[Rfam]
RNA: Glutamine riboswitch aptamer (glnA leader)
Nucleotides: 053
Stems, first nucleotide, its partner, number of pairs: 003049005009020004023050001029040003
Number, partner (000 for none) and nucleotide at each position: 001000a002000u003049c004048g005047u006046u007045c008000a009020u010019c011018u012017c013000g014000a015000a016000a017012g018011a019010g020009a021000c022000g023050g024000a025000a026000g027000u028000a029040g030039g031038u032000a033000a034000u035000g036000a037000u038031a039030c040029c041000g042000a043000a044000g045007g046006a047005a048004c049003g050023c051000a052000u053000c